Rfam assigns this 78-nucleotide RNA from Mizuhopecten yessoensis to the family "Small nucleolar RNA SNORD35". It scores 42 bits against the family's covariance model. Its family is annotated with nucleolus and RNA processing in the Gene Ontology. Rfam 15.1 lists 1,842 matches to the family in 634 species. U35 is a C/D box snoRNA located in intron 6 of ribosomal protein L13A and intron 3 of ribosomal protein S11 in humans and at homologous positions in mouse and chicken ribosomal protein genes. U35 guides the methylation of 2'-O-ribose sites in 28S rRNA. The family's RNA type in Rfam is C/D-box small nucleolar RNA. Clan: SNORD35 clan. The base pairs follow the family's consensus structure, which was predicted with PFOLD. For this family Rfam cites "Intron-encoded, antisense small nucleolar RNAs: the characterization of nine novel species points to their direct role as guides for the 2'-O-ribose methylation of rRNAs" (Nicoloso et al., J Mol Biol, 1996).
[Rfam]
RNA sequence: CACAGAUGAUGAUUCUAUCACGAUGGUCUACUGAAAUCAUUGAUGACACUGCCUCAUGGCGUUGACUGAUGUGACUAG
Numbered sequence: 001c002a003c004a005g006a007u008g009a010u011g012a013u014u015c016u017a018u019c020a021c022g023a024u025g026g027u028c029u030a031c032u033g034a035a036a037u038c039a040u041u042g043a044u045g046a047c048a049c050u051g052c053c054u055c056a057u058g059g060c061g062u063u064g065a066c067u068g069a070u071g072u073g074a075c076u077a078g
Stems, first nucleotide, its partner, number of pairs: 001073004